Notes:
The record is a 78-nucleotide RNA from Vanessa tameamea, which matches "mir-2756 microRNA precursor family" in Rfam. The family has 2 seed sequences and 31 matches in Rfam 15.1. The organism belongs to Vanessa, within Eukaryota. It scores 74 bits against the family's covariance model.
RNA sequence: CUGGUUGCAGACCCUGUAGCUGCUAAGGGGCGCAGUUUUUGUUUCUCCCCUAUGCUGCUACAUUGUCUGUAAUCAUCC
Numbered sequence: 001c002u003g004g005u006u007g008c009a010g011a012c013c014c015u016g017u018a019g020c021u022g023c024u025a026a027g028g029g030g031c032g033c034a035g036u037u038u039u040u041g042u043u044u045c046u047c048c049c050c051u052a053u054g055c056u057g058c059u060a061c062a063u064u065g066u067c068u069g070u071a072a073u074c075a076u077c078c
Stems, first nucleotide, its partner, number of pairs: 002075011015062006022055002026051005032045001034043002